The family of this 142-nucleotide RNA from Listeria booriae is "Ribosomal protein L10 leader". The source organism's lineage runs through Bacteria, Bacillati, Bacilli, Caryophanales and Listeria. It is annotated as a cis-regulatory leader. From the family's description: This family is a putative r-protein leader autoregulatory structure found in B. subtilis and other low-GC Gram-positive bacteria.
RNA sequence: CAAAACAGAAUAUCCUAACCGUAGACAGCUGGCGCGUCCUAUGUACGCUUAAUAUUCGCCCGCCGAGGAUUUUUGGCAAGUGACUUUGUGUCCUUGCGUGAACCCCUCACGUCUACGGUGUGAGGGGUUUCUUAUAUGCUUU
Numbered sequence: 001c002a003a004a005a006c007a008g009a010a011u012a013u014c015c016u017a018a019c020c021g022u023a024g025a026c027a028g029c030u031g032g033c034g035c036g037u038c039c040u041a042u043g044u045a046c047g048c049u050u051a052a053u054a055u056u057c058g059c060c061c062g063c064c065g066a067g068g069a070u071u072u073u074u075g076g077c078a079a080g081u082g083a084c085u086u087u088g089u090g091u092c093c094u095u096g097c098g099u100g101a102a103c104c105c106c107u108c109a110c111g112u113c114u115a116c117g118g119u120g121u122g123a124g125g126g127g128u129u130u131c132u133u134a135u136a137u138g139c140u141u142u
Stems, first nucleotide, its partner, number of pairs: 028063002031060003034048003103127010